[Rfam]
RNA sequence: GGAUGAGGUAGAGGCGCGGAUCUAGAUUAGUAGCAGCAGCUUUUUAAGGUUAAACCACCUGCUCGACUGUCAAAGGCUAAUCCGCCGAAGUUUUCAGCUAUGGUUUAAGGGCUGAUUGCUGGGUCUGUAUAAAAAAUAUACAGGACUGUCAUUAGUAGUUUAUAUCCAGGCUGCUGAUGUUGAGCUAUCUCGUAA
Number, nucleotide and partner (000 for none) at each position: 001g000002g000003a000004u000005g000006a190007g189008g188009u187010a186011g185012a000013g000014g000015c000016g085017c084018g083019g082020a081021u080022c000023u079024a078025g077026a000027u000028u000029a000030g000031u000032a000033g070034c069035a068036g067037c000038a000039g064040c000041u000042u000043u000044u000045u000046a000047a000048g000049g000050u000051u000052a000053a000054a000055c000056c000057a000058c000059c000060u000061g000062c000063u000064c039065g000066a000067c036068u035069g034070u033071c000072a000073a000074a000075g000076g000077c025078u024079a023080a021081u020082c019083c018084g017085c016086c000087g000088a000089a120090g119091u118092u000093u000094u115095c114096a113097g112098c111099u110100a000101u000102g000103g000104u000105u000106u000107a000108a000109g000110g099111g098112c097113u096114g095115a094116u000117u000118g091119c090120u089121g147122g146123g000124u144125c143126u142127g141128u140129a139130u138131a137132a000133a000134a000135a000136a000137u131138a130139u129140a128141c127142a126143g125144g124145a000146c122147u121148g000149u000150c179151a178152u177153u176154a175155g174156u173157a172158g171159u170160u169161u000162a000163u000164a000165u000166c000167c000168a000169g160170g159171c158172u157173g156174c155175u154176g153177a152178u151179g150180u000181u000182g000183a000184g000185c011186u010187a009188u008189c007190u006191c000192g000193u000194a000195a000
Rfam assigns this 195-nucleotide RNA from Halanaerobium salsuginis to the family "Lysine riboswitch aptamer". About the family: Riboswitches are metabolite binding domains within certain messenger RNAs that serve as precision sensors for their corresponding targets. The literature on the family includes a 2003 paper in Cell by Mandal et al., "Riboswitches Control Fundamental Biochemical Pathways in Bacillus subtilis and Other Bacteria". Lineage of the source: Bacteria > Bacillota > Clostridia > Halanaerobiaceae > Halanaerobium.